skipping-rope RNA: a 100-nucleotide sequence. By type it is a small RNA.
Nucleotides: 100
Base pairs, nucleotide, nucleotide: 001100002099003098004097005096006095007094008093011034012033013032014031015030024086025085026084027083028082036067037045038044039043072092073091074090075089076088
Number, partner (000 for none) and nucleotide at each position: 001100a002099a003098c004097a005096u006095u007094u008093g009000u010000g011034g012033u013032g014031g015030u016000a017000a018000a019000u020000u021000u022000u023000c024086g025085u026084g027083u028082c029000a030015a031014c032013c033012a034011c035000a036067c037045g038044c039043c040000g041000c042000u043039g044038g045037u046000a047000c048000u049000g050000a051000c052000a053000g054000g055000a056000g057000g058000a059000a060000a061000c062000u063000c064000u065000g066000a067036g068000a069000g070000a071000u072092g073091c074090a075089g076088g077000a078000g079000a080000a081000u082028g083027g084026c085025a086024c087000g088076c089075c090074u091073g092072c093008c094007a095006a096005a097004u098003g099002u100001u